[Rfam]
RNA sequence: CCGGCGGGACGACCCGUCGGCACGAACAUGAGCAGGGACGGCCCU
Number, nucleotide and partner (000 for none) at each position: 001c020002c019003g018004g017005c016006g015007g014008g013009a000010c000011g000012a000013c008014c007015c006016g005017u004018c003019g002020g001021c000022a000023c000024g000025a000026a000027c000028a000029u000030g000031a000032g000033c000034a045035g044036g043037g042038a000039c000040g000041g000042c037043c036044c035045u034

Rfam assigns this 45-nucleotide sequence from Nocardiopsis kunsanensis to the family "Guanidine-II riboswitch aptamer (mini-ykkC)". The source organism's lineage runs through Bacteria, Bacillati, Actinomycetota, Streptosporangiales and Nocardiopsis. Simpler in structure and has fewer highly conserved nucleotide positions than the ykkC-yxkD leader. Despite this each of its two stem-loop structures directly bind free guanidine. Therefore, mini-ykkC RNA motif represents a distinct class of guanidine-sensing RNAs. Pairs were carried over by alignment from the consensus structure, which is taken from published work.